About this RNA: Shown here is a 48-nucleotide RNA from Bacillus cereus, a member of the family "uup RNA". Pairs were carried over by alignment from the consensus structure, which is taken from published work.
RNA sequence: GAAAACUUUGCUCCGCACAAAUGUAUACGGUGAAGCGUUGUACGGAGC
Numbered sequence: 001g002a003a004a005a006c007u008u009u010g011c012u013c014c015g016c017a018c019a020a021a022u023g024u025a026u027a028c029g030g031u032g033a034a035g036c037g038u039u040g041u042a043c044g045g046a047g048c
Base pairs, nucleotide, nucleotide: 011047012046013045014044015043017041018040019039
Dot-bracket structure: ..........(((((.(((...................))).))))).